[Rfam]
RNA sequence: UUGUACAAUGAACACCCAAGAGAGCUUUAUAGUUCCCUGGACUUUGACACUGUGCUGGAGCAAUGACUGUUCUUUUCCUCUGCAUUGAAAGGAGUAUUUAUCCUUUUAGAUGUAUUCAGAAAGCCAGCAAGCAC
Numbered sequence: 001u002u003g004u005a006c007a008a009u010g011a012a013c014a015c016c017c018a019a020g021a022g023a024g025c026u027u028u029a030u031a032g033u034u035c036c037c038u039g040g041a042c043u044u045u046g047a048c049a050c051u052g053u054g055c056u057g058g059a060g061c062a063a064u065g066a067c068u069g070u071u072c073u074u075u076u077c078c079u080c081u082g083c084a085u086u087g088a089a090a091g092g093a094g095u096a097u098u099u100a101u102c103c104u105u106u107u108a109g110a111u112g113u114a115u116u117c118a119g120a121a122a123g124c125c126a127g128c129a130a131g132c133a134c
Base pairs, nucleotide, nucleotide: 003055004054005053006052007051013046014045017040019038020037022035024033025032026031057073058072059071060070061069062068079120080119081118082117083112084111085110086109087107088106089105090104091103092102093101
A member of the RNA family "Small nucleolar RNA SNORA22" from Microcebus murinus, 134 nucleotides long. ACA22 is a member of the H/ACA class of snoRNA that guide the sites of modification of uridines to pseudouridines. The family's consensus secondary structure was predicted with RNAfold. Its family is annotated with RNA processing and nucleolus in the Gene Ontology. Taxonomically the source falls in Microcebus (Eukaryota, Gnathostomata, Amniota, Eutheria). By type it is an H/ACA-box small nucleolar RNA.